[Rfam]
RNA sequence: GGCGAUAAAUUGCGGUGUGCAAUAGGCACAACGGACCCGGGGGCAGUACCCGGCGGCUCCACCAAAAGGCGUUUGACGGCAAACGUUUCCUGAUGGGGCCGAACCAGGAUCGACGUGUGUUGAAAGGCAUCGUUUUCGCCCGGGCUGAGUAACCCGUUAAAGGCUCAAAACUCACAAGUGCCAACGAUAAUGAAGCACUUGCUCUCGCUGCGUAA
Numbered sequence: 001g002g003c004g005a006u007a008a009a010u011u012g013c014g015g016u017g018u019g020c021a022a023u024a025g026g027c028a029c030a031a032c033g034g035a036c037c038c039g040g041g042g043g044c045a046g047u048a049c050c051c052g053g054c055g056g057c058u059c060c061a062c063c064a065a066a067a068g069g070c071g072u073u074u075g076a077c078g079g080c081a082a083a084c085g086u087u088u089c090c091u092g093a094u095g096g097g098g099c100c101g102a103a104c105c106a107g108g109a110u111c112g113a114c115g116u117g118u119g120u121u122g123a124a125a126g127g128c129a130u131c132g133u134u135u136u137c138g139c140c141c142g143g144g145c146u147g148a149g150u151a152a153c154c155c156g157u158u159a160a161a162g163g164c165u166c167a168a169a170a171c172u173c174a175c176a177a178g179u180g181c182c183a184a185c186g187a188u189a190a191u192g193a194a195g196c197a198c199u200u201g202c203u204c205u206c207g208c209u210g211c212g213u214a215a
Stems, first nucleotide, its partner, number of pairs: 001140005015130004027119003031116003037053005054101007141156004
Rfam assigns this 215-nucleotide RNA from Pelagerythrobacter marensis to the family "permuted transfer-messenger RNA". Gene Ontology term of the family: RNA catabolic process. It scores 147 bits against the family's covariance model. The family's consensus secondary structure is taken from published work. By type it is a non-coding RNA gene. A reference for the family is Williams and Bartel (1996), "Phylogenetic analysis of tmRNA secondary structure", RNA.